[Rfam]
This 393-nucleotide sequence from Rhodobium orientis belongs to the Rfam family "Bacterial RNase P class A".
The match comes from Rfam's covariance-model search (288 bits).
RNA sequence: CCAGUCGGCCGGACGGUUGCUGCGGCGCGCCGGCAACGGCCGCCGGGGAGGAAAGUCCGGGCUCCACGGAAACACGGUGCCGGGUAACGCCCGGCGGGGGCGACCCCAGGGAAAGUGCCACAGAAAGCAAACCGCCGCGCGCCGCGCGGUAAGGGUGAAAGGGUGGGGCAAGAGCCCACCGCGCUGCCGGCAACGGCAGCGGCAUGGUAAACCCCACCGGGAGCAAGACCGAAUAGGAACGACGCGGCGGCAACGCCAGGCCCCGUUUCCGGGCCGGUCGUUCGGGUUGGUCGCGCGAGGCGUCCGGUAACGGGCGUCCCAGAUGAAUAACCGUCACGCGGCGGGCUCCGGCCGGCCGCCGUACAGAACCCGGCUUACAGGCCGGCUGGCAUU
Numbered sequence: 001c002c003a004g005u006c007g008g009c010c011g012g013a014c015g016g017u018u019g020c021u022g023c024g025g026c027g028c029g030c031c032g033g034c035a036a037c038g039g040c041c042g043c044c045g046g047g048g049a050g051g052a053a054a055g056u057c058c059g060g061g062c063u064c065c066a067c068g069g070a071a072a073c074a075c076g077g078u079g080c081c082g083g084g085u086a087a088c089g090c091c092c093g094g095c096g097g098g099g100g101c102g103a104c105c106c107c108a109g110g111g112a113a114a115g116u117g118c119c120a121c122a123g124a125a126a127g128c129a130a131a132c133c134g135c136c137g138c139g140c141g142c143c144g145c146g147c148g149g150u151a152a153g154g155g156u157g158a159a160a161g162g163g164u165g166g167g168g169c170a171a172g173a174g175c176c177c178a179c180c181g182c183g184c185u186g187c188c189g190g191c192a193a194c195g196g197c198a199g200c201g202g203c204a205u206g207g208u209a210a211a212c213c214c215c216a217c218c219g220g221g222a223g224c225a226a227g228a229c230c231g232a233a234u235a236g237g238a239a240c241g242a243c244g245c246g247g248c249g250g251c252a253a254c255g256c257c258a259g260g261c262c263c264c265g266u267u268u269c270c271g272g273g274c275c276g277g278u279c280g281u282u283c284g285g286g287u288u289g290g291u292c293g294c295g296c297g298a299g300g301c302g303u304c305c306g307g308u309a310a311c312g313g314g315c316g317u318c319c320c321a322g323a324u325g326a327a328u329a330a331c332c333g334u335c336a337c338g339c340g341g342c343g344g345g346c347u348c349c350g351g352c353c354g355g356c357c358g359c360c361g362u363a364c365a366g367a368a369c370c371c372g373g374c375u376u377a378c379a380g381g382c383c384g385g386c387u388g389g390c391a392u393u
Base pairs, nucleotide, nucleotide: 001389002388003387004386005385006384007383008382009381010380011378012335013334014333015332016331017330018329020048021047023045024044025043026042027041053376054375055374057373058372059371060370061369062223063222064221065220071268072267075219076218077217078216079215080094081093082092083091084090095109096107097106098105099104110214111213115212116211117208118207119206132154133153134150135149136148137147138146139145140144162180163179164178165177166176167175181203182201183200184199185198186197187196188195189194227292228291229290230289237283238282239281240280241279242278260275262273263272264271299318300317301316302315303314304313305312306311